[Rfam]
RNA sequence: UUUUUCCACAAGGGGAGCCUGUUUAAGGCUGAGAGUGAACUUUGUUCAGACCCUUUGAACCUGUUAGUUAGUACUAGCGUAGGGAUGUGGUUUACCAUUUCG
Numbered sequence: 001u002u003u004u005u006c007c008a009c010a011a012g013g014g015g016a017g018c019c020u021g022u023u024u025a026a027g028g029c030u031g032a033g034a035g036u037g038a039a040c041u042u043u044g045u046u047c048a049g050a051c052c053c054u055u056u057g058a059a060c061c062u063g064u065u066a067g068u069u070a071g072u073a074c075u076a077g078c079g080u081a082g083g084g085a086u087g088u089g090g091u092u093u094a095c096c097a098u099u100u101c102g
Base pairs, nucleotide, nucleotide: 006090007089008088009087010086011054012053013052014051017029018028019027020026036048037047038046039045040044060083061082062081063080064077065076066075067074